RNA sequence: GCGCCGGUUUAGCUCAGUGGUUACUUCCACACAUCCAUCCCUCCGGGGAUCGAACCACGGGUGCUGUCCGGUGUUUUC
Numbered sequence: 001g002c003g004c005c006g007g008u009u010u011a012g013c014u015c016a017g018u019g020g021u022u023a024c025u026u027c028c029a030c031a032c033a034u035c036c037a038u039c040c041c042u043c044c045g046g047g048g049a050u051c052g053a054a055c056c057a058c059g060g061g062u063g064c065u066g067u068c069c070g071g072u073g074u075u076u077u078c
Base pairs, nucleotide, nucleotide: 002073003072004071005070006069007068012062013061014060015059017058018057019056020055025054026053027052029050

A member of the RNA family "Vault RNA" from Anabas testudineus, 78 nucleotides long. It is annotated as a non-coding RNA gene. Rfam describes the family as follows. This family of RNAs are found as part of the enigmatic vault ribonucleoprotein complex.